[Rfam]
Rfam assigns this 127-nucleotide RNA sequence from Salvelinus namaycush to the family "Small nucleolar RNA ACA64". Rfam links the family to the GO terms nucleolus and RNA processing. NCBI's taxonomy places the organism under Eukaryota, Teleostomi, Protacanthopterygii, Salmoniformes, Salvelinus. For this family Rfam cites "A computational screen for mammalian pseudouridylation guide H/ACA RNAs" (Schattner et al., RNA, 2006). The match comes from Rfam's covariance-model search (47 bits).
RNA sequence: CCAGUCUGAAAAUCACCUCAGAUAUCUCAGAUGUCUGGAGAGAGACAACUGGGCCUACAGUACUGUGGUACGUUACGUUUAUUGCCUGCUCUGUACAGCAGUGUGAUUAAACUCAUGUGCCACAAUU
Dot-bracket structure: ....((.(....((.(....((((.......))))....).)).....).))..............(.(((((.....(.(((...(((........)))....))).).....))))).)......